Shown here is a 70-nucleotide RNA sequence from Rodentolepis nana, a member of the family "HDV ribozyme from F. prausnitzii".
Pairs were carried over by alignment from the consensus structure, which is taken from published work.

Nucleotides: 070
Stems, first nucleotide, its partner, number of pairs: 001036007017029003043056005
Number, partner (000 for none) and nucleotide at each position: 001036g002035g003034u004033g005032u006031g007030g008000g009000a010000u011000a012000u013000a014000c015000u016000u017029a018028c019027c020000u021000c022000c023000u024000c025000g026000u027019g028018g029017u030007c031006c032005a033004c034003a035002c036001u037000g038000g039000g040000c041000a042000a043056c044055g045054u046053a047052u048000a049000a050000u051000c052047a053046u054045a055044c056043g057000g058000c059000a060000a061000a062000a063000a064000a065000g066000u067000c068000u069000a070000u
A search with the family's covariance model found it, with a score of 49 bits. The literature on the family includes a 2009 paper in Science by Webb et al., "Widespread occurrence of self-cleaving ribozymes".